[Rfam]
RNA sequence: CGACCUCUCGCGGGAGAGAUCGCCGGGGCGGUCGCCCCGGUGGCGCCGAAGGAGCAACCGCCCCCGGAAACUCUCAGGCAAAUGGGACCGCAGAGGGAAG
Numbered sequence: 001c002g003a004c005c006u007c008u009c010g011c012g013g014g015a016g017a018g019a020u021c022g023c024c025g026g027g028g029c030g031g032u033c034g035c036c037c038c039g040g041u042g043g044c045g046c047c048g049a050a051g052g053a054g055c056a057a058c059c060g061c062c063c064c065c066g067g068a069a070a071c072u073c074u075c076a077g078g079c080a081a082a083u084g085g086g087a088c089c090g091c092a093g094a095g096g097g098a099a100g
Stems, first nucleotide, its partner, number of pairs: 006095001008093001010091004020043010045079003048075002052073003058066001
RNA: Glycine riboswitch aptamer
Organism: Skermanella stibiiresistens